[Rfam]
RNA sequence: GUCCUCGAUUCUUGGCGCUCUGAUGUUAGCAUUCAUCAGAAGUGUAUGCAUAAUCGGAGGUAGAGUAGGUUGUGCCAAGUGGCGCAGCAGUCGAAUCACCUUCGGUGUCAAGCUUGAUUUAUUGUUUGAUAUCAUCCUCUGGAUUCGAAACACUU
Numbered sequence: 001g002u003c004c005u006c007g008a009u010u011c012u013u014g015g016c017g018c019u020c021u022g023a024u025g026u027u028a029g030c031a032u033u034c035a036u037c038a039g040a041a042g043u044g045u046a047u048g049c050a051u052a053a054u055c056g057g058a059g060g061u062a063g064a065g066u067a068g069g070u071u072g073u074g075c076c077a078a079g080u081g082g083c084g085c086a087g088c089a090g091u092c093g094a095a096u097c098a099c100c101u102u103c104g105g106u107g108u109c110a111a112g113c114u115u116g117a118u119u120u121a122u123u124g125u126u127u128g129a130u131a132u133c134a135u136c137c138u139c140u141g142g143a144u145u146c147g148a149a150a151c152a153c154u155u
Base pairs, nucleotide, nucleotide: 003060004059005058006057007055008054009053010052015045016044017043018042020039021038022037023036024035025034091148092147093146094145095144096143097142104133105132108129109128110127111126112125113124